[Rfam]
RNA sequence: GUCCCAGAUUUUGGGACGAAUUUUUAAUUCGUCCCAGAUUUUGGGACGAAUUUUUAAUUCGUCCCUAAUUCUGGGACGAAUUCUGGAUUCGUCUCAAAAUUU
Numbered sequence: 001g002u003c004c005c006a007g008a009u010u011u012u013g014g015g016a017c018g019a020a021u022u023u024u025u026a027a028u029u030c031g032u033c034c035c036a037g038a039u040u041u042u043g044g045g046a047c048g049a050a051u052u053u054u055u056a057a058u059u060c061g062u063c064c065c066u067a068a069u070u071c072u073g074g075g076a077c078g079a080a081u082u083c084u085g086g087a088u089u090c091g092u093c094u095c096a097a098a099a100u101u102u
Base pairs, nucleotide, nucleotide: 013095014094015093016092017091018090019089020088021087026082027081028080029079030078031077032076033075034074035073036072037069040068041067043065045063046062047061048060049059050058
RNA: Small nucleolar RNA SNORD90
Organism: Zingiber officinale